[Rfam]
RNA sequence: AUCCAUGGUCAAAGAACUGUCAACGAAGCCUUCUUAAGGAUAUUCUUAUAUCUACUUUUGCUUUGGGGAAAGUCUCCUGUCUAUACGCGGAAACGCAGCGGUUUCAUCCAACUGCUAUAUACUGUUCUAUCCACGUCGUGGCUGCCUAUCUGCGGAUCCGGGCUUGAUGUGCCAACUUUGGGGCUUGACCCGGUGGCCGGUGCACUAUUCUCAUUCGCUCCUCUUGAGUGUUUAUUGGCUUCGGCUGAGAUGACAUAGUGUAUCGCAACUAUCGAUACUCAGGGCUGGCUCGUACUGGAUCGGCACGGCACCUACCUCUUGGAUGGACUGUAUAUGUUUUUCCUACUGCUCUGCAGUAGUGAUCGUUCGACAAUGGGUGUUUGAAUCCUAGACCAUAGUUAUUUCAGUUGUACCGAUACUUGUAUCGGUAAACCCAAUGGAGCUUAUUCUUGAUCUAUGGA
Numbered sequence: 001a002u003c004c005a006u007g008g009u010c011a012a013a014g015a016a017c018u019g020u021c022a023a024c025g026a027a028g029c030c031u032u033c034u035u036a037a038g039g040a041u042a043u044u045c046u047u048a049u050a051u052c053u054a055c056u057u058u059u060g061c062u063u064u065g066g067g068g069a070a071a072g073u074c075u076c077c078u079g080u081c082u083a084u085a086c087g088c089g090g091a092a093a094c095g096c097a098g099c100g101g102u103u104u105c106a107u108c109c110a111a112c113u114g115c116u117a118u119a120u121a122c123u124g125u126u127c128u129a130u131c132c133a134c135g136u137c138g139u140g141g142c143u144g145c146c147u148a149u150c151u152g153c154g155g156a157u158c159c160g161g162g163c164u165u166g167a168u169g170u171g172c173c174a175a176c177u178u179u180g181g182g183g184c185u186u187g188a189c190c191c192g193g194u195g196g197c198c199g200g201u202g203c204a205c206u207a208u209u210c211u212c213a214u215u216c217g218c219u220c221c222u223c224u225u226g227a228g229u230g231u232u233u234a235u236u237g238g239c240u241u242c243g244g245c246u247g248a249g250a251u252g253a254c255a256u257a258g259u260g261u262a263u264c265g266c267a268a269c270u271a272u273c274g275a276u277a278c279u280c281a282g283g284g285c286u287g288g289c290u291c292g293u294a295c296u297g298g299a300u301c302g303g304c305a306c307g308g309c310a311c312c313u314a315c316c317u318c319u320u321g322g323a324u325g326g327a328c329u330g331u332a333u334a335u336g337u338u339u340u341u342c343c344u345a346c347u348g349c350u351c352u353g354c355a356g357u358a359g360u361g362a363u364c365g366u367u368c369g370a371c372a373a374u375g376g377g378u379g380u381u382u383g384a385a386u387c388c389u390a391g392a393c394c395a396u397a398g399u400u401a402u403u404u405c406a407g408u409u410g411u412a413c414c415g416a417u418a419c420u421u422g423u424a425u426c427g428g429u430a431a432a433c434c435c436a437a438u439g440g441a442g443c444u445u446a447u448u449c450u451u452g453a454u455c456u457a458u459g460g461a
Base pairs, nucleotide, nucleotide: 002461003460004459005458006457008454009453010452011451012450015409016408017407018406019405024065025064026063027062028061029060038053039052040051041050042049043048070445071444072443074442075441076440077439087096088095089094310380311379316376317375319373320372321371326368327367412429413428414427415426416425417424